[Rfam]
RNA: Guanidine-II riboswitch aptamer (mini-ykkC)
RNA sequence: CUGUUGGGACGACCCAAUAGCGCAUCUUUAUAUCGGGGACGACCCCA
Numbered sequence: 001c002u003g004u005u006g007g008g009a010c011g012a013c014c015c016a017a018u019a020g021c022g023c024a025u026c027u028u029u030a031u032a033u034c035g036g037g038g039a040c041g042a043c044c045c046c047a
Base pairs, nucleotide, nucleotide: 001020002019003018004017005016006015007014008013035046036045037044038043